Shown here is a 140-nucleotide sequence from Gemmiger formicilis, a member of the family "FMN riboswitch aptamer (RFN element)". Rfam describes the family as follows. The RFN element is a highly conserved domain that is found frequently in the 5'-untranslated regions of prokaryotic mRNAs that encode for flavin mononucleotide (FMN) biosynthesis and transport proteins. Taxonomically the source falls in Gemmiger (Bacteria, Bacillati, Eubacteriales, Oscillospiraceae).
RNA sequence: AGUCUGUUUCAGGGCGGGGUGUGAUUCCCCACCGGCGGUGAGCGGCAUGGCCCGCAAGCCCGCGACCAGCUGCAAAUGCGGCUGCUGACCCGGUGUGAUUCCGGGGCCGACGGUUAAAGUCCGGAUGAAAGAAACGGAAA
Numbered sequence: 001a002g003u004c005u006g007u008u009u010c011a012g013g014g015c016g017g018g019g020u021g022u023g024a025u026u027c028c029c030c031a032c033c034g035g036c037g038g039u040g041a042g043c044g045g046c047a048u049g050g051c052c053c054g055c056a057a058g059c060c061c062g063c064g065a066c067c068a069g070c071u072g073c074a075a076a077u078g079c080g081g082c083u084g085c086u087g088a089c090c091c092g093g094u095g096u097g098a099u100u101c102c103g104g105g106g107c108c109g110a111c112g113g114u115u116a117a118a119g120u121c122c123g124g125a126u127g128a129a130a131g132a133a134a135c136g137g138a139a140a
Stems, first nucleotide, its partner, number of pairs: 003138008017029003031120002033109002035063004058107002067084002089105005111123003